[Rfam]
The record is a 139-nucleotide RNA sequence from Sphenodon punctatus, which matches "Small nucleolar RNA SNORA49" in Rfam. A search with the family's covariance model found it, with a score of 120 bits. Rfam's curators write: The snoRNA ACA49 has no identified RNA target. NB genomic sequence 1-nt different from published. The base pairs follow the family's consensus structure, which was predicted with RNAalifold. The organism belongs to Sphenodon, within Eukaryota.

RNA sequence: CUUCCUCAGCCUUACUCCAGGGGCUUUAUUUGCAUAUUGAGUGCCCUGGCAUUGUCUGAGGAUAAAUUAAAAGUAUGCUCAUAUCCCUCCCCAAUAGGAUUCUGGGUAUCCUUUGGGGCCUGCAAUUUGAGCAGACAUU
Numbered sequence: 001c002u003u004c005c006u007c008a009g010c011c012u013u014a015c016u017c018c019a020g021g022g023g024c025u026u027u028a029u030u031u032g033c034a035u036a037u038u039g040a041g042u043g044c045c046c047u048g049g050c051a052u053u054g055u056c057u058g059a060g061g062a063u064a065a066a067u068u069a070a071a072a073g074u075a076u077g078c079u080c081a082u083a084u085c086c087c088u089c090c091c092c093a094a095u096a097g098g099a100u101u102c103u104g105g106g107u108a109u110c111c112u113u114u115g116g117g118g119c120c121u122g123c124a125a126u127u128u129g130a131g132c133a134g135a136c137a138u139u
Stems, first nucleotide, its partner, number of pairs: 003062007011054001017049006023042004076133003080129002089118006096112004